[Rfam]
Enterococcus-1 RNA: a 130-nucleotide RNA from Enterococcus faecium. NCBI's taxonomy places the organism under Bacteria, Lactobacillales, Enterococcaceae, Enterococcus, Enterococcus faecium. It is annotated as a small RNA. The base pairs follow the family's consensus structure, which is taken from published work.
RNA sequence: UUUUGGCCUUUUCGCGUAGGCAAAAAUGGUGAGGUCAGCCGACUUGGCGGAGGAACGCAGCCAACAAAGGUAACUGCGACUGGCGAAGGCACGUAGCCAACAAGCAGUUAGACCUUGCCACUAGCCAAAA
Numbered sequence: 001u002u003u004u005g006g007c008c009u010u011u012u013c014g015c016g017u018a019g020g021c022a023a024a025a026a027u028g029g030u031g032a033g034g035u036c037a038g039c040c041g042a043c044u045u046g047g048c049g050g051a052g053g054a055a056c057g058c059a060g061c062c063a064a065c066a067a068a069g070g071u072a073a074c075u076g077c078g079a080c081u082g083g084c085g086a087a088g089g090c091a092c093g094u095a096g097c098c099a100a101c102a103a104g105c106a107g108u109u110a111g112a113c114c115u116u117g118c119c120a121c122u123a124g125c126c127a128a129a130a
Stems, first nucleotide, its partner, number of pairs: 001130007009026004014021002028119009039070002044064002072109006081099004